The family of this 99-nucleotide RNA sequence from Tenderia electrophaga is "DUF3800-V RNA". By type it is a small RNA. The source organism's lineage runs through Bacteria, Pseudomonadota, Gammaproteobacteria, Tenderiaceae (SeqCode) and Tenderia (SeqCode). The base pairs follow the family's consensus structure, which is taken from published work.
RNA sequence: UACAUGAGACGGGUAAGUCCUAUAGCACGCCCAGGGUGCUUCCUUCCAUCGGUUGGCUAUGAGCCUUGGGGCAUCAGGUGUUAUAGGGGCCGUCUUUUU
Numbered sequence: 001u002a003c004a005u006g007a008g009a010c011g012g013g014u015a016a017g018u019c020c021u022a023u024a025g026c027a028c029g030c031c032c033a034g035g036g037u038g039c040u041u042c043c044u045u046c047c048a049u050c051g052g053u054u055g056g057c058u059a060u061g062a063g064c065c066u067u068g069g070g071g072c073a074u075c076a077g078g079u080g081u082u083a084u085a086g087g088g089g090c091c092g093u094c095u096u097u098u099u
Stems, first nucleotide, its partner, number of pairs: 002098001004096001006094001010092002023083006030077001031069007042056002046052002